[Rfam]
RNA: serC leader
RNA sequence: CGGUGGGACACCUCUCCCCAACGAGAGGCAUCUAUCUGGAAGGUUAGGCUAU
Number, nucleotide and partner (000 for none) at each position: 001c000002g000003g000004u000005g000006g000007g000008a000009c000010a000011c028012c027013u026014c025015u024016c023017c000018c000019c000020a000021a000022c000023g016024a015025g014026a013027g012028g011029c000030a000031u000032c047033u046034a045035u000036c043037u042038g000039g000040a000041a000042g037043g036044u000045u034046a033047g032048g000049c000050u000051a000052u000